[Rfam]
A member of the RNA family "Mason-Pfizer monkey virus packaging signal" from Pipistrellus kuhlii, 272 nucleotides long. A reference for the family is Mustafa et al. (2004), "Mutational analysis of the predicted secondary RNA structure of the Mason-Pfizer monkey virus packaging signal", Virus Res. From the family's description: This family represents a group of sequences that are related to the Mason-Pfizer monkey virus (MPMV) packaging signal. The packaging signal is located in the 5' UTR and is required for specific RNA encapsidation. It scores 138 bits against the family's covariance model.
RNA sequence: UGGCGCCCAACGUGGGUCAGAGCACAGGGGACUCCGUGAAGAACGCUGUUCAGAGAAGCCGGCAAAAGAGAAACUAAUAGGAGGACGAGAUUAAACGGGAACCUGCCGUUUCUUCUGAACCUCGGUAAGUUGAACAGCGAUUAUGGGACAAGAAAUAAGUCAGCAUGAAAUGUUCAUAGAAGGACUCAAAAAGGCUUUAAAGGCACGAGGGGUAAAGUUUUCUGUAAAACAAUUAUUAAGAUAUUUUGAUUAUAUUAAGGAUGUUUGUCCAU
Numbered sequence: 001u002g003g004c005g006c007c008c009a010a011c012g013u014g015g016g017u018c019a020g021a022g023c024a025c026a027g028g029g030g031a032c033u034c035c036g037u038g039a040a041g042a043a044c045g046c047u048g049u050u051c052a053g054a055g056a057a058g059c060c061g062g063c064a065a066a067a068g069a070g071a072a073a074c075u076a077a078u079a080g081g082a083g084g085a086c087g088a089g090a091u092u093a094a095a096c097g098g099g100a101a102c103c104u105g106c107c108g109u110u111u112c113u114u115c116u117g118a119a120c121c122u123c124g125g126u127a128a129g130u131u132g133a134a135c136a137g138c139g140a141u142u143a144u145g146g147g148a149c150a151a152g153a154a155a156u157a158a159g160u161c162a163g164c165a166u167g168a169a170a171u172g173u174u175c176a177u178a179g180a181a182g183g184a185c186u187c188a189a190a191a192a193g194g195c196u197u198u199a200a201a202g203g204c205a206c207g208a209g210g211g212g213u214a215a216a217g218u219u220u221u222c223u224g225u226a227a228a229a230c231a232a233u234u235a236u237u238a239a240g241a242u243a244u245u246u247u248g249a250u251u252a253u254a255u256u257a258a259g260g261a262u263g264u265u266u267g268u269c270c271a272u
Stems, first nucleotide, its partner, number of pairs: 006030003012025003035045003081123004089116001090114001094110005130151003135147001138145002156199003159195003206248005212242002216234004221229001257272001259270004
Pairs were carried over by alignment from the consensus structure, which was predicted with PFOLD.
It is annotated as a cis-regulatory element.